Shown here is a 263-nucleotide sequence from Nonomuraea glycinis, a member of the family "HNH endonuclease-associated RNA and ORF (HEARO) RNA". The organism belongs to Nonomuraea, within Bacteria. A search with the family's covariance model found it, with a score of 87 bits.

[Rfam]
RNA sequence: GUCAACGACCCCGGUCUGAAGGCCGGAGCUUGAGGGACCGCUAGGUGCUUUGAGCUCGUAUUGACCAGCCCGAGCCAUCACGAACAGGAGGUGCAUCCUUGAUGGCUACGUUUCACGUAGGACAGCAGACCCACCGGCAGGUGCUUCCUCAGCCUGCCGCUCUGGAAUCGGUGUCAGCAGACAACCCGGGUCGGGACGAAACGGGACACCGGCGCCCCCGCGAUGGGGUAUCCGGCGUGGAACAUGGGCGAGGGGAGACCCGC
Numbered sequence: 001g002u003c004a005a006c007g008a009c010c011c012c013g014g015u016c017u018g019a020a021g022g023c024c025g026g027a028g029c030u031u032g033a034g035g036g037a038c039c040g041c042u043a044g045g046u047g048c049u050u051u052g053a054g055c056u057c058g059u060a061u062u063g064a065c066c067a068g069c070c071c072g073a074g075c076c077a078u079c080a081c082g083a084a085c086a087g088g089a090g091g092u093g094c095a096u097c098c099u100u101g102a103u104g105g106c107u108a109c110g111u112u113u114c115a116c117g118u119a120g121g122a123c124a125g126c127a128g129a130c131c132c133a134c135c136g137g138c139a140g141g142u143g144c145u146u147c148c149u150c151a152g153c154c155u156g157c158c159g160c161u162c163u164g165g166a167a168u169c170g171g172u173g174u175c176a177g178c179a180g181a182c183a184a185c186c187c188g189g190g191u192c193g194g195g196a197c198g199a200a201a202c203g204g205g206a207c208a209c210c211g212g213c214g215c216c217c218c219c220g221c222g223a224u225g226g227g228g229u230a231u232c233c234g235g236c237g238u239g240g241a242a243c244a245u246g247g248g249c250g251a252g253g254g255g256a257g258a259c260c261c262g263c
Stems, first nucleotide, its partner, number of pairs: 001065005007059001010028001012025002015022002029045004068249005073107008110243009120233001131165002135159008143259001145257006167224004
Dot-bracket structure: (((((.(..(.((.((....)).))..)((((.........)))).............).)))))..(((((((((((((...................))))))))..(((((((((.(..........((..(((((((([.[[[[[[.))))))))....)).((((..................................................))))........).))))))))).)))))..]]]]]].]....